[Rfam]
RNA sequence: ACAACGGCCCUUUUAAGGGCCACUCAAGAUCUUUCUAAAGAGCAGU
Numbered sequence: 001a002c003a004a005c006g007g008c009c010c011u012u013u014u015a016a017g018g019g020c021c022a023c024u025c026a027a028g029a030u031c032u033u034u035c036u037a038a039a040g041a042g043c044a045g046u
Stems, first nucleotide, its partner, number of pairs: 006021006
Dot-bracket structure: .....((((((....)))))).........................

A member of the RNA family "Histone 3' UTR stem-loop" from Perca fluviatilis, 46 nucleotides long. From the family's description: The mRNAs of metazoan histone genes lack a poly-A tail. 3' end processing occurs at a site between a highly conserved stem-loop (modelled by this family) and a purine rich region around 20 nts downstream (the histone downstream element, or HDE). A search with the family's covariance model found it, with a score of 34 bits. The family's consensus secondary structure is taken from published work.